[Rfam]
RNA sequence: GCCCCUGUCUUUGGGGAGUAGCCGGCUUCUACCCAGAAGCGCCUGCAUCAACAUUCUCGGUCGCGCAGACCGUGGUGCAGGUAGCCGUUUCGGUUGGCAAGACCAUCGACACACCACGCGACCGGUCGGGCGCGGCGGUGUGUCGUGGUUUUCAGCCCGACCUCGAGCGCCU
Numbered sequence: 001g002c003c004c005c006u007g008u009c010u011u012u013g014g015g016g017a018g019u020a021g022c023c024g025g026c027u028u029c030u031a032c033c034c035a036g037a038a039g040c041g042c043c044u045g046c047a048u049c050a051a052c053a054u055u056c057u058c059g060g061u062c063g064c065g066c067a068g069a070c071c072g073u074g075g076u077g078c079a080g081g082u083a084g085c086c087g088u089u090u091c092g093g094u095u096g097g098c099a100a101g102a103c104c105a106u107c108g109a110c111a112c113a114c115c116a117c118g119c120g121a122c123c124g125g126u127c128g129g130g131c132g133c134g135g136c137g138g139u140g141u142g143u144c145g146u147g148g149u150u151u152u153c154a155g156c157c158c159g160a161c162c163u164c165g166a167g168c169g170c171c172u
Base pairs, nucleotide, nucleotide: 025040026039027038041082042081043080044079045078046077047076048075049074050073058072059071060070061069062068083172084171086169087168088167089166
Record summary: Shown here is a 172-nucleotide RNA sequence from Paraburkholderia phenazinium, a member of the family "Manganese Mn2+ riboswitch aptamer (yybP-ykoY)". The literature on the family includes a 2001 paper in Curr Biol by Argaman et al., "Novel small RNA-encoding genes in the intergenic regions of Escherichia coli".